[Rfam]
RNA sequence: AAGAUGUUCCGCUGCAAUGAAUGGAUAUUGGUAAGAGCAUCUG
Numbered sequence: 001a002a003g004a005u006g007u008u009c010c011g012c013u014g015c016a017a018u019g020a021a022u023g024g025a026u027a028u029u030g031g032u033a034a035g036a037g038c039a040u041c042u043g
Stems, first nucleotide, its partner, number of pairs: 003041007013033002015030004
The record is a 43-nucleotide RNA from Bacillus sp. HNG, which matches "Ribosomal protein L19 leader" in Rfam. The family's consensus secondary structure was predicted with CMfinder. Rfam's curators write: This family is a putative r-protein leader autoregulatory structure found in B. subtilis and other low-GC Gram-positive bacteria. It is located in the 5' untranslated regions of mRNAs encoding ribosomal protein L19 (rplS). The literature on the family includes a 1994 paper in Prog Nucleic Acid Res Mol Biol by Zengel and Lindahl, "Diverse mechanisms for regulating ribosomal protein synthesis in Escherichia coli". Its family is annotated with regulation of gene expression in the Gene Ontology. The source organism's lineage runs through Bacteria, Bacillati, Bacillota, Caryophanales and Bacillus.